Notes
A member of the RNA family "Small Cajal body specific RNA 1" from Denticeps clupeoides, 169 nucleotides long. The family has 29 seed sequences and 715 matches in Rfam 15.1. From the family's description: scaRNAs are a specific class of small nuclear RNAs which localise to the Cajal bodies and guide the modification of RNA polymerase II transcribed spliceosomal RNAs U1, U2, U4, U5 and U12. ACA35 belong to the H/ACA box class of guide RNAs as it has the predicted hairpin-hinge-hairpin-tail structure, conserved H/ACA-box motifs and is found associated with GAR1. It is predicted to guide pseudouridylation of the U2 spliceosomal snRNA at residue U89. NCBI's taxonomy places the organism under Eukaryota, Chordata, Actinopteri, Otomorpha, Denticeps. A reference for the family is Darzacq et al. (2002), "Cajal body-specific small nuclear RNAs: a novel class of 2'-O-methylation and pseudouridylation guide RNAs", EMBO J. It scores 84 bits against the family's covariance model. The family's RNA type in Rfam is small Cajal body RNA.
RNA sequence: GUGCACUAGAUACUAACCUGACUGCCAGUAGCCCCUUGCCAUUCUGUAUGUGUGCUGGGGUCUGCUAUUGUGGUUGUUGGGUCAGAAGAGUGCAAUAGAAUUUCAGGCCACGGAGAUUUAAGCUCAGAGUGUAAAGGUAUGCUCUGUGUUAUAACCCAGUGGUACAGUG
Numbered sequence: 001g002u003g004c005a006c007u008a009g010a011u012a013c014u015a016a017c018c019u020g021a022c023u024g025c026c027a028g029u030a031g032c033c034c035c036u037u038g039c040c041a042u043u044c045u046g047u048a049u050g051u052g053u054g055c056u057g058g059g060g061u062c063u064g065c066u067a068u069u070g071u072g073g074u075u076g077u078u079g080g081g082u083c084a085g086a087a088g089a090g091u092g093c094a095a096u097a098g099a100a101u102u103u104c105a106g107g108c109c110a111c112g113g114a115g116a117u118u119u120a121a122g123c124u125c126a127g128a129g130u131g132u133a134a135a136g137g138u139a140u141g142c143u144c145u146g147u148g149u150u151a152u153a154a155c156c157c158a159g160u161g162g163u164a165c166a167g168u169g
Base pairs, nucleotide, nucleotide: 003093004092005091006090007089016082017081018080020078021077022076024074025073026072027066028065029064030063031062033060034059035058036057107163108162109161127142129140130139131138132137144159145158146157148155149154